Rfam assigns this 147-nucleotide RNA from Leucobacter massiliensis to the family "FMN riboswitch aptamer (RFN element)". Taxonomically the source falls in Leucobacter (Bacteria, Actinomycetes, Micrococcales, Microbacteriaceae).

RNA sequence: AGAGCUGUUCCGGGGUCGGUGAGAAUCCGAACCGGCGGUCACAGCCCGCGAACCUCGCACCCGCGAGGCCGAACCGGUGGGAUUCCGGUGCCGACAGUGAUGGCCGCGACACGUGUCGCGGUCGAGUCUGGAUGAGAGGAGCGCUGC
Numbered sequence: 001a002g003a004g005c006u007g008u009u010c011c012g013g014g015g016u017c018g019g020u021g022a023g024a025a026u027c028c029g030a031a032c033c034g035g036c037g038g039u040c041a042c043a044g045c046c047c048g049c050g051a052a053c054c055u056c057g058c059a060c061c062c063g064c065g066a067g068g069c070c071g072a073a074c075c076g077g078u079g080g081g082a083u084u085c086c087g088g089u090g091c092c093g094a095c096a097g098u099g100a101u102g103g104c105c106g107c108g109a110c111a112c113g114u115g116u117c118g119c120g121g122u123c124g125a126g127u128c129u130g131g132a133u134g135a136g137a138g139g140a141g142c143g144c145u146g147c
Stems, first nucleotide, its partner, number of pairs: 003145003008140003017029003033093002035049004044091002053068002073089005095130003